[Rfam]
RNA sequence: AGUUGUGCAGUGAGCUAAUAGCGAACUAUUCUUUUGCCUUUUACUAAAGAAUAUUGUGUGCUCGCUGCUACUCAAGCAGCAUACGCCUCUUUUUGGAGGGUUUUUUUUCCUCUUUAGGAAUU
Numbered sequence: 001a002g003u004u005g006u007g008c009a010g011u012g013a014g015c016u017a018a019u020a021g022c023g024a025a026c027u028a029u030u031c032u033u034u035u036g037c038c039u040u041u042u043a044c045u046a047a048a049g050a051a052u053a054u055u056g057u058g059u060g061c062u063c064g065c066u067g068c069u070a071c072u073c074a075a076g077c078a079g080c081a082u083a084c085g086c087c088u089c090u091u092u093u094u095g096g097a098g099g100g101u102u103u104u105u106u107u108u109c110c111u112c113u114u115u116a117g118g119a120a121u122u
Stems, first nucleotide, its partner, number of pairs: 002080004008067008018057001027053008097122001104120005
RNA: U5 spliceosomal RNA
Organism: Erythranthe guttata